[Rfam]
RNA sequence: AGUUGAAAUGAUGCUUACCAUCUUUCGGGUCUGAGAUCAUUUGAUGACACCCUUUCCAACUGAUCAACU
Numbered sequence: 001a002g003u004u005g006a007a008a009u010g011a012u013g014c015u016u017a018c019c020a021u022c023u024u025u026c027g028g029g030u031c032u033g034a035g036a037u038c039a040u041u042u043g044a045u046g047a048c049a050c051c052c053u054u055u056c057c058a059a060c061u062g063a064u065c066a067a068c069u
Stems, first nucleotide, its partner, number of pairs: 001069006

Shown here is a 69-nucleotide RNA from Laodelphax striatellus, a member of the family "Small nucleolar RNA SNORD2". Lineage of the source: Eukaryota > Altocrustacea > Dicondylia > Delphacidae > Laodelphax. Pairs were carried over by alignment from the consensus structure, which was predicted with WAR. Its family is annotated with RNA processing and nucleolus in the Gene Ontology.